MIR394 microRNA precursor family: a 128-nucleotide RNA sequence from Jatropha curcas.
Gene Ontology terms of the family: miRNA-mediated post-transcriptional gene silencing and RISC complex.
Rfam 15.1 lists 724 matches to the family in 216 species.
A search with the family's covariance model found it, with a score of 91 bits.
RNA sequence: CUUACAGAGUUUAUUGGCAUUCUGUCCACCUCCUUGUUGAAAUCUCUCUUUCUCUCUCUCUCUCUCUCUCUCUCUCUCGCUCGAGUAUUUUUAUGGAGGUGGGCAUACUGCCAACUGAGCUCUGUUGG
Dot-bracket structure: ..........(..((((((...(((((((((((.............................................................)))))))))))...))))))...)..........
For this family Rfam cites "Computational identification of plant microRNAs and their targets, including a stress-induced miRNA" (Jones-Rhoades and Bartel, Mol Cell, 2004).